[Rfam]
RNA sequence: UCGCCCAUCAGAGUGGUUGUGAUGUGGUGAAUUUAACUCAUAUCACAGCCAGCUUUGAUGAGCGAAA
Numbered sequence: 001u002c003g004c005c006c007a008u009c010a011g012a013g014u015g016g017u018u019g020u021g022a023u024g025u026g027g028u029g030a031a032u033u034u035a036a037c038u039c040a041u042a043u044c045a046c047a048g049c050c051a052g053c054u055u056u057g058a059u060g061a062g063c064g065a066a067a
Stems, first nucleotide, its partner, number of pairs: 006060008014051009025042002
A member of the RNA family "mir-2 microRNA precursor family" from Microctonus aethiopoides, 67 nucleotides long. The family's consensus secondary structure was predicted with PFOLD. On this family, see Lee and Ambros, Science 2001: "An extensive class of small RNAs in Caenorhabditis elegans". Rfam links the family to the GO terms miRNA-mediated post-transcriptional gene silencing and RISC complex. Rfam 15.1 lists 918 matches to the family in 280 species.